[Rfam]
RNA sequence: GUGGGCAUCUUACCAGUCAGUGCUGGAUUGGCUCUGGGCUCUAACACUGUCUGGUAACGAUGUUCAA
Numbered sequence: 001g002u003g004g005g006c007a008u009c010u011u012a013c014c015a016g017u018c019a020g021u022g023c024u025g026g027a028u029u030g031g032c033u034c035u036g037g038g039c040u041c042u043a044a045c046a047c048u049g050u051c052u053g054g055u056a057a058c059g060a061u062g063u064u065c066a067a
Base pairs, nucleotide, nucleotide: 002066003065004064005063006062007061008060009059010057011056012055013054014053015052016051018049019048020047021046022045024043025042026041027040
RNA: mir-8/mir-141/mir-200 microRNA precursor family
Organism: Sterrhoptilus dennistouni